RNA sequence: CACCAGGUUGAUUCUGCCUGACGUGUGCGCUAGUCUUGGGGACUUAGCCAUGCAAGCCAGCGAAGCGGCGCGGAGCGGCGGACGGCUCAGUAGGACGGCGAUAAUCCACCCGCAGCAGAGACAAGGAUAACCGCGGCAAGCUGCGGCUAAGACAUGGACAGGCUGCGGCGCGGGGAGGCGCGGGCAGCGGACAGGGAGCGGCUGCGGCGGAGUUGCUGGCCCAUCAGCUGGUAGGUAGGGUAAGGGCCUACCUAGGCGACGACGGGUGACGGGGGGUGAGAGCCCGGAACCGGAGAGGGAGCCUGAGAAACAGCUCCCACGUCCAAGGACGGCAGCAGGCGCGGAACUUGCCCAAUCCCGGCGGGGGAGGCAGCCACAAGACGUGGGGGCCCGGAACGCACGGCAAAGGAGUGCGGGGCGACUGGAGGGCAAGUCUGGUGCCAGCAGCCGCGGUAAUUCCAGCUCCAGGAGCGCACAUGAGUGUUGCUG
Numbered sequence: 001c002a003c004c005a006g007g008u009u010g011a012u013u014c015u016g017c018c019u020g021a022c023g024u025g026u027g028c029g030c031u032a033g034u035c036u037u038g039g040g041g042a043c044u045u046a047g048c049c050a051u052g053c054a055a056g057c058c059a060g061c062g063a064a065g066c067g068g069c070g071c072g073g074a075g076c077g078g079c080g081g082a083c084g085g086c087u088c089a090g091u092a093g094g095a096c097g098g099c100g101a102u103a104a105u106c107c108a109c110c111c112g113c114a115g116c117a118g119a120g121a122c123a124a125g126g127a128u129a130a131c132c133g134c135g136g137c138a139a140g141c142u143g144c145g146g147c148u149a150a151g152a153c154a155u156g157g158a159c160a161g162g163c164u165g166c167g168g169c170g171c172g173g174g175g176a177g178g179c180g181c182g183g184g185c186a187g188c189g190g191a192c193a194g195g196g197a198g199c200g201g202c203u204g205c206g207g208c209g210g211a212g213u214u215g216c217u218g219g220c221c222c223a224u225c226a227g228c229u230g231g232u233a234g235g236u237a238g239g240g241u242a243a244g245g246g247c248c249u250a251c252c253u254a255g256g257c258g259a260c261g262a263c264g265g266g267u268g269a270c271g272g273g274g275g276g277u278g279a280g281a282g283c284c285c286g287g288a289a290c291c292g293g294a295g296a297g298g299g300a301g302c303c304u305g306a307g308a309a310a311c312a313g314c315u316c317c318c319a320c321g322u323c324c325a326a327g328g329a330c331g332g333c334a335g336c337a338g339g340c341g342c343g344g345a346a347c348u349u350g351c352c353c354a355a356u357c358c359c360g361g362c363g364g365g366g367g368a369g370g371c372a373g374c375c376a377c378a379a380g381a382c383g384u385g386g387g388g389g390c391c392c393g394g395a396a397c398g399c400a401c402g403g404c405a406a407a408g409g410a411g412u413g414c415g416g417g418g419c420g421a422c423u424g425g426a427g428g429g430c431a432a433g434u435c436u437g438g439u440g441c442c443a444g445c446a447g448c449c450g451c452g453g454u455a456a457u458u459c460c461a462g463c464u465c466c467a468g469g470a471g472c473g474c475a476c477a478u479g480a481g482u483g484u485u486g487c488u489g
Stems, first nucleotide, its partner, number of pairs: 004020005022479010033382006039375002041342001047340003051337003056079002060076002065071002086295003096218007105211002110207007123155001125153001131146006220266003227257003232254008270292003274285004297318006320331004348372001350371003356367004397415005422468006435462004444451002
RNA: Microsporidia small subunit ribosomal RNA, nucleotides 1 to 489